[Rfam]
RNA sequence: CUUCUACUAAAACAUGGAAGCACUUACUAUUUAAAAGUCAAAGAAAGUACUUCCAUGUUAAAGUUAAAG
Numbered sequence: 001c002u003u004c005u006a007c008u009a010a011a012a013c014a015u016g017g018a019a020g021c022a023c024u025u026a027c028u029a030u031u032u033a034a035a036a037g038u039c040a041a042a043g044a045a046a047g048u049a050c051u052u053c054c055a056u057g058u059u060a061a062a063g064u065u066a067a068a069g
Stems, first nucleotide, its partner, number of pairs: 001069003006064003011059010022048004027043002
RNA: mir-302 microRNA precursor family